[Rfam]
RNA: Purine riboswitch aptamer
RNA sequence: UUUCUCACGGUUGAUCUGUCUCGUAUAUGUUCAGGAAUGGGCCUGAACGUUUCUACCCGACCACCGUAAAUGGUCGGACUACGGGGCGGAGUUGCCGGUCC
Numbered sequence: 001u002u003u004c005u006c007a008c009g010g011u012u013g014a015u016c017u018g019u020c021u022c023g024u025a026u027a028u029g030u031u032c033a034g035g036a037a038u039g040g041g042c043c044u045g046a047a048c049g050u051u052u053c054u055a056c057c058c059g060a061c062c063a064c065c066g067u068a069a070a071u072g073g074u075c076g077g078a079c080u081a082c083g084g085g086g087c088g089g090a091g092u093u094g095c096c097g098g099u100c101c
Base pairs, nucleotide, nucleotide: 018087019086020085021084022083023082024081025080029048030047031046032045033044034043035042057077058076059075060074061073062072063071